[Rfam]
RNA: ASdes TB sRNA
RNA sequence: AGCUCGACGGGAUCGACCGCGCGCGUCACGACCAGGUAGUUGCGCAACACGAUCGCGUGCCGGUUCUC
Dot-bracket structure: ...(((.((...(.(((.......))))......(..(.(((.(...).))))..).)).))).....